[Rfam]
RNA sequence: UGUUGAGCCUUUAGCUAUGGCACUAGGCUUUUAGGUCAUCACAAAUUAAAAUUGAUUUUUUUCACUCAGAGAAUAUUAAGAUACUGGGAUUAUCUAUGUAUUCUCUGAAAUUUGCGGGAUCAAACAGUU
Numbered sequence: 001u002g003u004u005g006a007g008c009c010u011u012u013a014g015c016u017a018u019g020g021c022a023c024u025a026g027g028c029u030u031u032u033a034g035g036u037c038a039u040c041a042c043a044a045a046u047u048a049a050a051a052u053u054g055a056u057u058u059u060u061u062u063c064a065c066u067c068a069g070a071g072a073a074u075a076u077u078a079a080g081a082u083a084c085u086g087g088g089a090u091u092a093u094c095u096a097u098g099u100a101u102u103c104u105c106u107g108a109a110a111u112u113u114g115c116g117g118g119a120u121c122a123a124a125c126a127g128u129u
Stems, first nucleotide, its partner, number of pairs: 001025002004022001007021003054121006066108010079095005
The record is a 129-nucleotide RNA from Mus spicilegus, which matches "Small nucleolar RNA SNORA79" in Rfam. On this family, see Schattner et al., RNA 2006: "A computational screen for mammalian pseudouridylation guide H/ACA RNAs". About the family: ACA65 (SNORA79) is a member of the H/ACA class of snoRNAs that guide the sites of modification of uridines to pseudouridines. This snoRNA was identified by computational screening and its expression in mouse experimentally verified by Northern blot and primer extension analysis. The family has 25 seed sequences and 944 matches in Rfam 15.1. It is annotated as an H/ACA-box small nucleolar RNA. NCBI's taxonomy places the organism under Eukaryota, Metazoa, Euteleostomi, Myomorpha, Mus. A search with the family's covariance model found it, with a score of 108 bits. The base pairs follow the family's consensus structure, which was predicted with RNAalifold.